[Rfam]
RNA: U11 spliceosomal RNA
RNA sequence: AAAAAGGGCUUCUGUCGUGAGUGGCACACAUAGGGCAGCUCCAUUGCUCUUUGUGCGGAAUCGACAUCAAAGACUAAAAGACCAUCAGAUUUGUACUUACCUCAUCUUCCACGGGGUACAAAUUUUGUUCUGAACAAGGCAUCUUAACAUGCUUGUUG
Numbered sequence: 001a002a003a004a005a006g007g008g009c010u011u012c013u014g015u016c017g018u019g020a021g022u023g024g025c026a027c028a029c030a031u032a033g034g035g036c037a038g039c040u041c042c043a044u045u046g047c048u049c050u051u052u053g054u055g056c057g058g059a060a061u062c063g064a065c066a067u068c069a070a071a072g073a074c075u076a077a078a079a080g081a082c083c084a085u086c087a088g089a090u091u092u093g094u095a096c097u098u099a100c101c102u103c104a105u106c107u108u109c110c111a112c113g114g115g116g117u118a119c120a121a122a123u124u125u126u127g128u129u130c131u132g133a134a135c136a137a138g139g140c141a142u143c144u145u146a147a148c149a150u151g152c153u154u155g156u157u158g
Base pairs, nucleotide, nucleotide: 008117009116010115011114012113013026014025015024016023017022027055028054029053030052032050033049034048035047036046037045038044057110058109059108060107134156135155136154137153139152140151141150142149
Dot-bracket structure: .......((((((((((....)))))((((.(((((((.....))))))).)))).((((..............................................))))..)))))................((((.((((......))))))))..